[Rfam]
RNA: t44 RNA
Organism: Achromatium sp. WMS2
RNA sequence: AUUAUUGGUUAUUAAUUUCACACAUAUGUCGACACAGAAGGCUGGGUGCGAUGGGCCAAUUAAGAUACUUUUUUGGUAGGCCUAAAGUUGCUUUCUGGGACGUAUGGAGGCUUAAC
Numbered sequence: 001a002u003u004a005u006u007g008g009u010u011a012u013u014a015a016u017u018u019c020a021c022a023c024a025u026a027u028g029u030c031g032a033c034a035c036a037g038a039a040g041g042c043u044g045g046g047u048g049c050g051a052u053g054g055g056c057c058a059a060u061u062a063a064g065a066u067a068c069u070u071u072u073u074u075g076g077u078a079g080g081c082c083u084a085a086a087g088u089u090g091c092u093u094u095c096u097g098g099g100a101c102g103u104a105u106g107g108a109g110g111c112u113u114a115a116c
Stems, first nucleotide, its partner, number of pairs: 023106008035097008048088002